The record is an 80-nucleotide RNA sequence from Poecilia reticulata, which matches "mir-16 microRNA precursor family" in Rfam. Rfam 15.1 lists 4,705 matches to the family in 758 species. A search with the family's covariance model found it, with a score of 46 bits. Pairs were carried over by alignment from the consensus structure, which was predicted with PFOLD.
RNA sequence: GCCACCCUGAAGCAGCACUGCUAAUAUUGGUUUUUUAUUUUUUCUCACACACCAAUAUUUACGUGCUGCUAAAGUGUGGC
Numbered sequence: 001g002c003c004a005c006c007c008u009g010a011a012g013c014a015g016c017a018c019u020g021c022u023a024a025u026a027u028u029g030g031u032u033u034u035u036u037a038u039u040u041u042u043u044c045u046c047a048c049a050c051a052c053c054a055a056u057a058u059u060u061a062c063g064u065g066c067u068g069c070u071a072a073a074g075u076g077u078g079g080c
Stems, first nucleotide, its partner, number of pairs: 001080003005076001007074001011070008023059008